[Rfam]
Rfam assigns this 175-nucleotide RNA sequence from Streptomyces sp. ICBB 8177 to the family "c-di-AMP riboswitch aptamer (ydaO/yuaA leader)". NCBI's taxonomy places the organism under Bacteria, Bacillati, Actinomycetota, Streptomycetaceae, Streptomyces.

Nucleotides: 175
Base pairs, nucleotide, nucleotide: 004047005046006045048154049153050152051151052150053149058068069139070138071137077115078114079113080112081111082110083109118133119132120131121130
Number, partner (000 for none) and nucleotide at each position: 001000g002000a003000g004047u005046u006045c007000g008000a009000c010000g011000c012000g013000c014000c015000g016000g017000u018000u019000c020000a021000g022000u023000a024000g025000c026000a027000c028000g029000g030000g031000g032000g033000g034000c035000a036000c037000c038000g039000a040000c041000g042000c043000g044000c045006g046005g047004a048154g049153c050152c051151g052150g053149g054000g055000a056000a057000c058068c059000a060000a061000c062000g063000u064000u065000c066000c067000c068058g069139g070138g071137g072000u073000g074000a075000a076000u077115c078114g079113g080112g081111g082110u083109c084000a085000g086000g087000a088000c089000g090000c091000g092000c093000c094000g095000a096000c097000c098000a099000g100000g101000g102000c103000g104000c105000g106000u107000g108000a109083g110082a111081c112080c113079c114078c115077g116000u117000a118133g119132g120131g121130c122000u123000u124000c125000u126000u127000c128000c129000g130121g131120c132119c133118c134000g135000a136000a137071u138070c139069c140000g141000a142000c143000a144000g145000c146000u147000c148000a149053c150052c151051c152050g153049g154048u155000a156000g157000g158000c159000g160000g161000c162000a163000g164000c165000a166000g167000g168000a169000a170000g171000a172000a173000g174000g175000a